[Rfam]
RNA sequence: AACGUGCUCCGGGGUCAGUGAGAUUCUGAACCGGCGGUGACAGUCCGCGAGCCGAGAGCCGCUUUCGAGCGGGUCGAGGUUGAUCUGGUGCAAUUCCAGAACCGACGGUAAUGGCGAUGUCGAACGACAUCUCCUCAGUCCGGAUGGGAGGAUGCACGGA
Numbered sequence: 001a002a003c004g005u006g007c008u009c010c011g012g013g014g015u016c017a018g019u020g021a022g023a024u025u026c027u028g029a030a031c032c033g034g035c036g037g038u039g040a041c042a043g044u045c046c047g048c049g050a051g052c053c054g055a056g057a058g059c060c061g062c063u064u065u066c067g068a069g070c071g072g073g074u075c076g077a078g079g080u081u082g083a084u085c086u087g088g089u090g091c092a093a094u095u096c097c098a099g100a101a102c103c104g105a106c107g108g109u110a111a112u113g114g115c116g117a118u119g120u121c122g123a124a125c126g127a128c129a130u131c132u133c134c135u136c137a138g139u140c141c142g143g144a145u146g147g148g149a150g151g152a153u154g155c156a157c158g159g160a
Base pairs, nucleotide, nucleotide: 003158004157005156006155007154008152009151010150016028017027018026032104033103034048035047036046037045043102044101051080052079053078084100085099086098087097088096106142107141108140
Shown here is a 160-nucleotide RNA from Herbiconiux salviae, a member of the family "FMN riboswitch aptamer (RFN element)".